Rfam assigns this 61-nucleotide RNA from Rhinolophus ferrumequinum to the family "Small nucleolar RNA SNORD75". The base pairs follow the family's consensus structure, which was predicted with RNAalifold. Gene Ontology terms of the family: nucleolus and RNA processing. Rfam 15.1 lists 767 matches to the family in 616 species. NCBI's taxonomy places the organism under Eukaryota, Opisthokonta, Dipnotetrapodomorpha, Boreoeutheria, Rhinolophus.

RNA sequence: GGCCCGUGAUGGUUAAGAGCAGUGGACAUAAAGGAUUUCUGAAAAAUUGUAUUCUGAGGCU
Numbered sequence: 001g002g003c004c005c006g007u008g009a010u011g012g013u014u015a016a017g018a019g020c021a022g023u024g025g026a027c028a029u030a031a032a033g034g035a036u037u038u039c040u041g042a043a044a045a046a047u048u049g050u051a052u053u054c055u056g057a058g059g060c061u
Base pairs, nucleotide, nucleotide: 001061002060003059004058